[Rfam]
RNA sequence: AUCGCUUCUCGCCUUUUGGCUAAGAUCAAGUGUAGUAUCUGUGUCUAUCAGUUUAAUAUCUGAUACGUCCCCCAUCGGGGACUAUACAUAUUAAUGAUUUUUUCGAACAGGGAGUCGGAAGCGGGGCUUGCUCCGUCCGCUCCACGCAUCGACUCGGUAUUGCAGUACCUCCGAGAACGUGCACCCUCU
Numbered sequence: 001a002u003c004g005c006u007u008c009u010c011g012c013c014u015u016u017u018g019g020c021u022a023a024g025a026u027c028a029a030g031u032g033u034a035g036u037a038u039c040u041g042u043g044u045c046u047a048u049c050a051g052u053u054u055a056a057u058a059u060c061u062g063a064u065a066c067g068u069c070c071c072c073c074a075u076c077g078g079g080g081a082c083u084a085u086a087c088a089u090a091u092u093a094a095u096g097a098u099u100u101u102u103u104c105g106a107a108c109a110g111g112g113a114g115u116c117g118g119a120a121g122c123g124g125g126g127c128u129u130g131c132u133c134c135g136u137c138c139g140c141u142c143c144a145c146g147c148a149u150c151g152a153c154u155c156g157g158u159a160u161u162g163c164a165g166u167a168c169c170u171c172c173g174a175g176a177a178c179g180u181g182c183a184c185c186c187u188c189u
Stems, first nucleotide, its partner, number of pairs: 007025003011020003046065006067082006111143005117137002123134004146182003150179002153175005
Dot-bracket structure: ......(((.(((....)))..)))....................((((((........)))))).((((((....))))))............................(((((.((....((((....)))).)).)))))..(((.((.(((((.............)))))..))))).......